Shown here is an 82-nucleotide sequence from Nitrosospira sp. Nsp1, a member of the family "c-di-GMP-I-GGC riboswitch aptamer".
RNA sequence: AGGAACAAAGCCAAACCUGUCGCGAGGCGGGGACGGAAAGCUGCGGGUCUACGCACAAGCGGAGGCAGCCGGGUUGCUCCAA
Numbered sequence: 001a002g003g004a005a006c007a008a009a010g011c012c013a014a015a016c017c018u019g020u021c022g023c024g025a026g027g028c029g030g031g032g033a034c035g036g037a038a039a040g041c042u043g044c045g046g047g048u049c050u051a052c053g054c055a056c057a058a059g060c061g062g063a064g065g066c067a068g069c070c071g072g073g074u075u076g077c078u079c080c081a082a
Stems, first nucleotide, its partner, number of pairs: 003079002011036002016031006034068001039075004044071003047066003